Shown here is a 96-nucleotide RNA from Triplophysa rosa, a member of the family "Z30 small nucleolar RNA".
The family's RNA type in Rfam is C/D-box small nucleolar RNA.
Pairs were carried over by alignment from the consensus structure, which was predicted with PFOLD.
The organism belongs to Triplophysa, within Eukaryota.
The literature on the family includes a 2002 paper in Mol Cell Biol by Galardi et al., "Purified box C/D snoRNPs are able to reproduce site-specific 2'-O-methylation of target RNA in vitro".
It scores 61 bits against the family's covariance model.
RNA sequence: AGCAAUGAUGAGUAAAAGAACAUUACUGACUUGGUAUUGUUGCCAUCUGGCAUCUCUGACCAAGAUCUGAUUGAGUUUAAUCUUCUCUCUGAGCUG
Numbered sequence: 001a002g003c004a005a006u007g008a009u010g011a012g013u014a015a016a017a018g019a020a021c022a023u024u025a026c027u028g029a030c031u032u033g034g035u036a037u038u039g040u041u042g043c044c045a046u047c048u049g050g051c052a053u054c055u056c057u058g059a060c061c062a063a064g065a066u067c068u069g070a071u072u073g074a075g076u077u078u079a080a081u082c083u084u085c086u087c088u089c090u091g092a093g094c095u096g
Stems, first nucleotide, its partner, number of pairs: 002094002039054001041052002